The record is a 100-nucleotide sequence from Pogona vitticeps, which matches "Small nucleolar RNA SNORD16" in Rfam. The source organism's lineage runs through Eukaryota, Dipnotetrapodomorpha, Unidentata, Episquamata and Pogona. The family is grouped with related families in Rfam's "SNORD16 clan".
RNA sequence: UGCUAUGAUGUCGUAAUUUGCGUCUUACACUGUGCUCAGCGACAGUUGCCUGCUGUCAUUAGGCUGGUACAGAUGGUUGCUGAACACCUAACUCUGAGCA
Number, nucleotide and partner (000 for none) at each position: 001u100002g099003c098004u000005a000006u000007g000008a000009u000010g000011u000012c000013g000014u000015a000016a000017u000018u000019u000020g000021c082022g081023u000024c079025u000026u000027a000028c000029a000030c072031u071032g070033u069034g068035c000036u000037c000038a000039g064040c063041g057042a056043c055044a054045g053046u000047u000048g000049c000050c000051u000052g000053c045054u044055g043056u042057c041058a000059u000060u000061a000062g000063g040064c039065u000066g000067g000068u034069a033070c032071a031072g030073a000074u000075g000076g000077u000078u000079g024080c000081u022082g021083a000084a000085c000086a000087c000088c000089u000090a000091a000092c000093u000094c000095u000096g000097a000098g003099c002100a001